[Rfam]
RNA sequence: UCUGUUGUCCUUCAUUCCACCGGAGUCUGUCUCAUACCUAAUCAGAUUUCAGUGGCAUGAAGUACAUGAGACA
Numbered sequence: 001u002c003u004g005u006u007g008u009c010c011u012u013c014a015u016u017c018c019a020c021c022g023g024a025g026u027c028u029g030u031c032u033c034a035u036a037c038c039u040a041a042u043c044a045g046a047u048u049u050c051a052g053u054g055g056c057a058u059g060a061a062g063u064a065c066a067u068g069a070g071a072c073a
Stems, first nucleotide, its partner, number of pairs: 010062006018054003022050004027045003
This 73-nucleotide RNA from Ophiophagus hannah belongs to the Rfam family "mir-205 microRNA precursor family". Gene Ontology terms of the family: miRNA-mediated post-transcriptional gene silencing and RISC complex. On this family, see Lim et al., Science 2003: "Vertebrate microRNA genes".